[Rfam]
RNA sequence: GAUGAAGAAGAAGAGCUCCCUUUCGAUCCAAUUCAGGAGAGGAAGUGGUAGGAUGCAGCUGCCGGUUCAUGGAUACCUCUGUAGUGCAGGGCAAAUAGUACUACCCUUUCAUGGGUUUGCAUGACUCGGGAGAUGAACCCGCCAUUGUCUUCCUCUAUUGAUUGGAUUGAAGGGAGCUCCUCUAGCUACAUCU
Numbered sequence: 001g002a003u004g005a006a007g008a009a010g011a012a013g014a015g016c017u018c019c020c021u022u023u024c025g026a027u028c029c030a031a032u033u034c035a036g037g038a039g040a041g042g043a044a045g046u047g048g049u050a051g052g053a054u055g056c057a058g059c060u061g062c063c064g065g066u067u068c069a070u071g072g073a074u075a076c077c078u079c080u081g082u083a084g085u086g087c088a089g090g091g092c093a094a095a096u097a098g099u100a101c102u103a104c105c106c107u108u109u110c111a112u113g114g115g116u117u118u119g120c121a122u123g124a125c126u127c128g129g130g131a132g133a134u135g136a137a138c139c140c141g142c143c144a145u146u147g148u149c150u151u152c153c154u155c156u157a158u159u160g161a162u163u164g165g166a167u168u169g170a171a172g173g174g175a176g177c178u179c180c181u182c183u184a185g186c187u188a189c190a191u192c193u
Base pairs, nucleotide, nucleotide: 013179014178015177016176017175018174019173020172024169025168026167027166028165029164030163037156059132060131062129063128064127068123069122070121071120076115